[Rfam]
This 87-nucleotide RNA belongs to the Rfam family "DUF3800-VII RNA". The family's RNA type in Rfam is small RNA.
RNA sequence: CGCAGGCAAGCGUGAGACUUGUAGAGGUUGCCGGAAACGGCGACAGCCCGAACGGGUGGGAUCCUCGAACUCAGGGCCUGCACUCUU
Numbered sequence: 001c002g003c004a005g006g007c008a009a010g011c012g013u014g015a016g017a018c019u020u021g022u023a024g025a026g027g028u029u030g031c032c033g034g035a036a037a038c039g040g041c042g043a044c045a046g047c048c049c050g051a052a053c054g055g056g057u058g059g060g061a062u063c064c065u066c067g068a069a070c071u072c073a074g075g076g077c078c079u080g081c082a083c084u085c086u087u
Stems, first nucleotide, its partner, number of pairs: 002081006011074001013073004022068001024066003027044007047056003